[Rfam]
RNA sequence: AGUCAAGAGUCUUUGGCACCGUUUUUGGUGAGCAGAUUUCUUUUGCCUAUUGAAGGGUGAAAGACAUG
Numbered sequence: 001a002g003u004c005a006a007g008a009g010u011c012u013u014u015g016g017c018a019c020c021g022u023u024u025u026u027g028g029u030g031a032g033c034a035g036a037u038u039u040c041u042u043u044u045g046c047c048u049a050u051u052g053a054a055g056g057g058u059g060a061a062a063g064a065c066a067u068g
Base pairs, nucleotide, nucleotide: 009065010064011063012062013061014060017059018058019057020056022055023054024053025052027051028050030048032046033045034044035043036042

Description: The family of this 68-nucleotide sequence from Martinezella rhizogenes is "S-element". On this family, see Venkova-Canova et al., Mol Microbiol 2004: "Two discrete elements are required for the replication of a repABC plasmid: an antisense RNA and a stem-loop structure". This family represents a group of S-elements from p42d and related plasmids. The S-element has multiple functions and is believed to act as a negative regulator of repC transcription, be required for efficient replication and act as a translational enhancer of repC. The family's RNA type in Rfam is cis-regulatory element. Gene Ontology terms of the family: mRNA transcription and translation regulator activity. The family has 29 seed sequences and 231 matches in Rfam 15.1. Rfam's curators put it in the seed alignment.